[Rfam]
RNA: Small nucleolar RNA Z103
RNA sequence: AUGGAAGUGAGGAUCCUUUCCCCAAAUGAUCGACCAUGAUUAUACUGUGCACAGCUGUAAUCCCACCGGGAUUCCAAGCCAGAAAUCUGAUCCAU
Numbered sequence: 001a002u003g004g005a006a007g008u009g010a011g012g013a014u015c016c017u018u019u020c021c022c023c024a025a026a027u028g029a030u031c032g033a034c035c036a037u038g039a040u041u042a043u044a045c046u047g048u049g050c051a052c053a054g055c056u057g058u059a060a061u062c063c064c065a066c067c068g069g070g071a072u073u074c075c076a077a078g079c080c081a082g083a084a085a086u087c088u089g090a091u092c093c094a095u
Stems, first nucleotide, its partner, number of pairs: 001095005